[Rfam]
RNA sequence: GAUGCAAUGAUGAGAUAAAAGCACGAAGAGUGUGAGAAGAGCAGUGGGUUUACCGUGAGCUCUCCUUUAAAACGACUUCUCCUUCCACUGAGCAUU
Numbered sequence: 001g002a003u004g005c006a007a008u009g010a011u012g013a014g015a016u017a018a019a020a021g022c023a024c025g026a027a028g029a030g031u032g033u034g035a036g037a038a039g040a041g042c043a044g045u046g047g048g049u050u051u052a053c054c055g056u057g058a059g060c061u062c063u064c065c066u067u068u069a070a071a072a073c074g075a076c077u078u079c080u081c082c083u084u085c086c087a088c089u090g091a092g093c094a095u096u
Stems, first nucleotide, its partner, number of pairs: 001096005

Small nucleolar RNA Z152/R70/R12/: a 96-nucleotide RNA. The base pairs follow the family's consensus structure, which was predicted with PFOLD. On this family, see Barneche et al., J Mol Biol 2001: "Identification of 66 box C/D snoRNAs in Arabidopsis thaliana: extensive gene duplications generated multiple isoforms predicting new ribosomal RNA 2'-O-methylation sites". Rfam classes the family as a C/D-box small nucleolar RNA.